[Rfam]
Background: A member of the RNA family "SAH (S-adenosyl-L-homocysteine) riboswitch aptamer" from Sulfurirhabdus autotrophica, 82 nucleotides long. For this family Rfam cites "Riboswitches that sense S-adenosylhomocysteine and activate genes involved in coenzyme recycling" (Wang et al., Mol Cell, 2008). Lineage of the source: Bacteria > Pseudomonadati > Betaproteobacteria > Nitrosomonadales > Sulfurirhabdus.
RNA sequence: CACGCUGAGGAGCGCUGCAGCAGGCUAUUUGCCUGCCAGGCUCGGCGUGUGAGGGUUUUUGUUUCAACGGCGCUCGUUCUUU
Numbered sequence: 001c002a003c004g005c006u007g008a009g010g011a012g013c014g015c016u017g018c019a020g021c022a023g024g025c026u027a028u029u030u031g032c033c034u035g036c037c038a039g040g041c042u043c044g045g046c047g048u049g050u051g052a053g054g055g056u057u058u059u060u061g062u063u064u065c066a067a068c069g070g071c072g073c074u075c076g077u078u079c080u081u082u
Base pairs, nucleotide, nucleotide: 002048003047004046005045006044007043008042021035022034023033024032025031